Record summary: L31-Firmicutes ribosomal protein leader: a 31-nucleotide RNA sequence. The base pairs follow the family's consensus structure, which is taken from published work. The family's RNA type in Rfam is cis-regulatory leader. Rfam's curators put it in the seed alignment. The literature on the family includes a 2020 paper in BMC Microbiol by Eckert and Weinberg, "Discovery of 20 novel ribosomal leader candidates in bacteria and archaea".
[Rfam]
RNA sequence: CUAUGGCCAAAAAAGGUCAUGGCGGAAGGAG
Numbered sequence: 001c002u003a004u005g006g007c008c009a010a011a012a013a014a015g016g017u018c019a020u021g022g023c024g025g026a027a028g029g030a031g
Stems, first nucleotide, its partner, number of pairs: 001022008